Overview: A member of the RNA family "Glycine riboswitch aptamer" from Terrisporobacter othiniensis, 89 nucleotides long. The source organism's lineage runs through Bacteria, Bacillota, Clostridia, Peptostreptococcaceae and Terrisporobacter. The match comes from Rfam's covariance-model search (68 bits).

RNA sequence: AUAGGAAACUCUGGAGAGACCCGUAAAGGGCGCCGAAGGGGCAAGGCUUAAUUGCUCAAUCUCUCAGGCAAAAGGACAGAGAAUAUAUA
Numbered sequence: 001a002u003a004g005g006a007a008a009c010u011c012u013g014g015a016g017a018g019a020c021c022c023g024u025a026a027a028g029g030g031c032g033c034c035g036a037a038g039g040g041g042c043a044a045g046g047c048u049u050a051a052u053u054g055c056u057c058a059a060u061c062u063c064u065c066a067g068g069c070a071a072a073a074g075g076a077c078a079g080a081g082a083a084u085a086u087a088u089a
Base pairs, nucleotide, nucleotide: 006084009081010080011079012078013077020030021029022028032069033068034067035065036064039063040062041061045056046055